A member of the RNA family "A. fumigatus sRNA Afu_309" from Cercophora newfieldiana, 279 nucleotides long. Taxonomically the source falls in Cercophora (Eukaryota, Pezizomycotina, Sordariomycetes, Lasiosphaeriaceae). The base pairs follow the family's consensus structure, which was predicted with WAR.
RNA sequence: UUCCUCUUUUUCUUCACGCACCUGUGCCCAGCGAUCCCCUUCCAUUUCGGUGGUUAGGGUUGAUUGCUGACGCAGUUCGGUAACCAUGGAGCCAUCUAGUUCACUAUGAUGUCAAUUUCCUACCGACAGGUGCAAGAGUAACCGAAUUCUGGGGAGCCCCGUUCGCUGUAAAAGGCUUGAGCGGUGGUGAAGCAGAUUUUAGGAGAUGUCAUAUUCCAAGCCGUUCGCCGAGAUCGUCGAUCUAUGAGGCUGGGGGAAACCAUGACCUGCGCUACAUUC
Numbered sequence: 001u002u003c004c005u006c007u008u009u010u011u012c013u014u015c016a017c018g019c020a021c022c023u024g025u026g027c028c029c030a031g032c033g034a035u036c037c038c039c040u041u042c043c044a045u046u047u048c049g050g051u052g053g054u055u056a057g058g059g060u061u062g063a064u065u066g067c068u069g070a071c072g073c074a075g076u077u078c079g080g081u082a083a084c085c086a087u088g089g090a091g092c093c094a095u096c097u098a099g100u101u102c103a104c105u106a107u108g109a110u111g112u113c114a115a116u117u118u119c120c121u122a123c124c125g126a127c128a129g130g131u132g133c134a135a136g137a138g139u140a141a142c143c144g145a146a147u148u149c150u151g152g153g154g155a156g157c158c159c160c161g162u163u164c165g166c167u168g169u170a171a172a173a174g175g176c177u178u179g180a181g182c183g184g185u186g187g188u189g190a191a192g193c194a195g196a197u198u199u200u201a202g203g204a205g206a207u208g209u210c211a212u213a214u215u216c217c218a219a220g221c222c223g224u225u226c227g228c229c230g231a232g233a234u235c236g237u238c239g240a241u242c243u244a245u246g247a248g249g250c251u252g253g254g255g256g257a258a259a260c261c262a263u264g265a266c267c268u269g270c271g272c273u274a275c276a277u278u279c
Stems, first nucleotide, its partner, number of pairs: 018133008026073002029069003033065004037059004042053004078125005087114003091110001093108001144200003150194002157186001159184007166175002205272001208266005221255002224252001227250003232242004